[Rfam]
RNA sequence: GUGCCUCAAUCUAUUGAGUAAGGAAAUUAUUGGGCCUUGGUGACUCUUGGCAAUGUCCUAAAUUGGGCGAACGAAUUUUUGUAAGGUAUAGGUCGUCCCGCGGACUGUUCGCCUACUUUGUGAGCGGUCUCGGUGAAGCGAUCUGGCCU
Numbered sequence: 001g002u003g004c005c006u007c008a009a010u011c012u013a014u015u016g017a018g019u020a021a022g023g024a025a026a027u028u029a030u031u032g033g034g035c036c037u038u039g040g041u042g043a044c045u046c047u048u049g050g051c052a053a054u055g056u057c058c059u060a061a062a063u064u065g066g067g068c069g070a071a072c073g074a075a076u077u078u079u080u081g082u083a084a085g086g087u088a089u090a091g092g093u094c095g096u097c098c099c100g101c102g103g104a105c106u107g108u109u110c111g112c113c114u115a116c117u118u119u120g121u122g123a124g125c126g127g128u129c130u131c132g133g134u135g136a137a138g139c140g141a142u143c144u145g146g147c148c149u
Base pairs, nucleotide, nucleotide: 004023005022006021008019034051035050036049039046054070057067058066084149085148086147087146090144091143092142093141094140095139096138099133102130103129104128105127106126108124109123110122111121112120
This 149-nucleotide RNA from Heliothis virescens belongs to the Rfam family "U12 minor spliceosomal RNA". It scores 91 bits against the family's covariance model. Pairs were carried over by alignment from the consensus structure. By type it is a spliceosomal small nuclear RNA. The family is grouped with related families in Rfam's "U2 clan".